[Rfam]
RNA sequence: CUGUAUACUGAGUGGCCAGAUUAUUAUGAUCUCUGAGUACAUAAUAACCUGGCCACUCAGUGUAUAU
Numbered sequence: 001c002u003g004u005a006u007a008c009u010g011a012g013u014g015g016c017c018a019g020a021u022u023a024u025u026a027u028g029a030u031c032u033c034u035g036a037g038u039a040c041a042u043a044a045u046a047a048c049c050u051g052g053c054c055a056c057u058c059a060g061u062g063u064a065u066a067u
Base pairs, nucleotide, nucleotide: 004064005063006062007061008060009059010058011057012056013055014054015053016052017051019049021047022046023045024044025043026042027041028040
The record is a 67-nucleotide RNA from Pipistrellus kuhlii, which matches "mir-9256 microRNA precursor family" in Rfam. Rfam 15.1 lists 31,772 matches to the family in 5 species.